Source information:
The record is a 107-nucleotide RNA from Aureimonas jatrophae, which matches "rpsB sRNA" in Rfam. The match comes from Rfam's covariance-model search (42 bits). The family has 4 seed sequences and 245 matches in Rfam 15.1.
RNA sequence: CACACACGGAUGUCGGGUUCAACGCGGGUCUCCGCUACGAUCCCACCGGUGGCGUCUCGCCGAGGCGCUCUGAUCCGUGGAGGCACUAACCGGUUCAAAGGAACGAA
Numbered sequence: 001c002a003c004a005c006a007c008g009g010a011u012g013u014c015g016g017g018u019u020c021a022a023c024g025c026g027g028g029u030c031u032c033c034g035c036u037a038c039g040a041u042c043c044c045a046c047c048g049g050u051g052g053c054g055u056c057u058c059g060c061c062g063a064g065g066c067g068c069u070c071u072g073a074u075c076c077g078u079g080g081a082g083g084c085a086c087u088a089a090c091c092g093g094u095u096c097a098a099a100g101g102a103a104c105g106a107a
Base pairs, nucleotide, nucleotide: 001082003080005079006078007077008076009075010074011073015044016043023034024033026032051068053067054066055065056064057063058062